[Rfam]
This 81-nucleotide RNA sequence from Oryzias latipes belongs to the Rfam family "mir-729 microRNA precursor family". The base pairs follow the family's consensus structure, which was predicted with RNAalifold. Gene Ontology terms of the family: RISC complex and miRNA-mediated post-transcriptional gene silencing.

RNA sequence: ACCCUCCAGAGCAGGGGCUGUAUCAUAACCAGGCUGUGAGCUGAACGAGCAUGGGUAUGAUACGACCUCAGUUUGGAGGAG
Numbered sequence: 001a002c003c004c005u006c007c008a009g010a011g012c013a014g015g016g017g018c019u020g021u022a023u024c025a026u027a028a029c030c031a032g033g034c035u036g037u038g039a040g041c042u043g044a045a046c047g048a049g050c051a052u053g054g055g056u057a058u059g060a061u062a063c064g065a066c067c068u069c070a071g072u073u074u075g076g077a078g079g080a081g
Stems, first nucleotide, its partner, number of pairs: 003079005009074004014069004019064009029054003033050002035047003